[Rfam]
The record is a 242-nucleotide RNA from Paenibacillus faecis, which matches "BsrG" in Rfam. Rfam 15.1 lists 614 matches to the family in 343 species. Rfam classes the family as a small RNA. The family's consensus secondary structure was predicted with WAR. bsrE, bsrG and bsrH pair through intermolecular interactions with antisense sRNAs. They form type I toxin/antitoxin system that includes an mRNA encoding for a short, toxic peptide (bsrE, bsrG and bsrH) and an antitoxin that is comprised of an antisense RNA. bsrG encodes a 39-amino-acid toxin, and the 180 nucleotide antisense sRNA called SR4 acts as the antitoxin (they overlap by 123 nucleotides). SR4 interaction with the 3'UTR of bsrG RNA promotes bsrG degradation and inhibits its translation. BsrG interferes with cell envelope biosynthesis, causes membrane invaginations and delocalisation of the cell wall synthesis and initiates autolysis. bsrE RNA encodes 30 amino-acid toxin peptide. Its antitoxin gene, SR5 overlaps by 112 nucleotides at the 3' end of bsrE. SR5 also overlaps bsrG from nucleotide 163 to 52 (Rfam overlap check). The antitoxin SR5 promotes bsrE degradation but unlike SR4 it does not directly inhibits toxin mRNA translation.
RNA sequence: UACAAUAUACGGCUAUAAGGGCGGUCGGCUAAUCUCCCAGAAGGGAGGUAAUGCCCAUGGAGGUCUAAGAUGCACUUUCCUUAAUGUUCAUGUUCGGCAUGUUCCUUCUGGCAUUGCUUACCUACAUGAAAAAGAAAUAGACCGCCCUGCCUAAGGAAACGGUCUAUUCUGCGACCUGACUAGUGUGGCCGACUGCUCUUUAUGCAGUUAUUGUACUUUGGAGCCGUGUUAGCGCACGGCUC
Numbered sequence: 001u002a003c004a005a006u007a008u009a010c011g012g013c014u015a016u017a018a019g020g021g022c023g024g025u026c027g028g029c030u031a032a033u034c035u036c037c038c039a040g041a042a043g044g045g046a047g048g049u050a051a052u053g054c055c056c057a058u059g060g061a062g063g064u065c066u067a068a069g070a071u072g073c074a075c076u077u078u079c080c081u082u083a084a085u086g087u088u089c090a091u092g093u094u095c096g097g098c099a100u101g102u103u104c105c106u107u108c109u110g111g112c113a114u115u116g117c118u119u120a121c122c123u124a125c126a127u128g129a130a131a132a133a134g135a136a137a138u139a140g141a142c143c144g145c146c147c148u149g150c151c152u153a154a155g156g157a158a159a160c161g162g163u164c165u166a167u168u169c170u171g172c173g174a175c176c177u178g179a180c181u182a183g184u185g186u187g188g189c190c191g192a193c194u195g196c197u198c199u200u201u202a203u204g205c206a207g208u209u210a211u212u213g214u215a216c217u218u219u220g221g222a223g224c225c226g227u228g229u230u231a232g233c234g235c236a237c238g239g240c241u242c
Base pairs, nucleotide, nucleotide: 001215002214003213004212005211007209010191011190012189013188014187018148019147020146021145023142025140030051032049034047035046036045037044038043059121061119062118063117064116072087073086074085097112098111160171161170162169193207194206195205196204221242222241223240224239225238226237227236228235229234